[Rfam]
RNA sequence: AAUGAUGGUUUGGUCGCUUUUCAUUAUAAGUCUUAUGGGACUUUUUUCAUACACAAAGAGGCUCCAUAAUCUCUGAUUGGGGAGUUACCCACUACAGAAAUUAUAGAGCC
Numbered sequence: 001a002a003u004g005a006u007g008g009u010u011u012g013g014u015c016g017c018u019u020u021u022c023a024u025u026a027u028a029a030g031u032c033u034u035a036u037g038g039g040a041c042u043u044u045u046u047u048c049a050u051a052c053a054c055a056a057a058g059a060g061g062c063u064c065c066a067u068a069a070u071c072u073c074u075g076a077u078u079g080g081g082g083a084g085u086u087a088c089c090c091a092c093u094a095c096a097g098a099a100a101u102u103a104u105a106g107a108g109c110c
Stems, first nucleotide, its partner, number of pairs: 001025005008017002028043005060110005066104005072098002077094001079092001081090002
The record is a 110-nucleotide RNA sequence from Streptococcus merionis, which matches "Streptococcus RNA 266" in Rfam. The match comes from Rfam's covariance-model search (98 bits). The source organism's lineage runs through Bacteria, Bacilli, Lactobacillales, Streptococcaceae and Streptococcus. By type it is a small RNA.